[Rfam]
RNA sequence: GACGAACACCCAUCACAAUGGAUCGUCCGGCACGUACCUGCCGGUGAAGGAGAAGAUC
Numbered sequence: 001g002a003c004g005a006a007c008a009c010c011c012a013u014c015a016c017a018a019u020g021g022a023u024c025g026u027c028c029g030g031c032a033c034g035u036a037c038c039u040g041c042c043g044g045u046g047a048a049g050g051a052g053a054a055g056a057u058c
Base pairs, nucleotide, nucleotide: 010050011049013047014046015045027044028043029042030041031040032039

msiK RNA: a 58-nucleotide sequence. Pairs were carried over by alignment from the consensus structure, which is taken from published work. It is one of the family's seed sequences.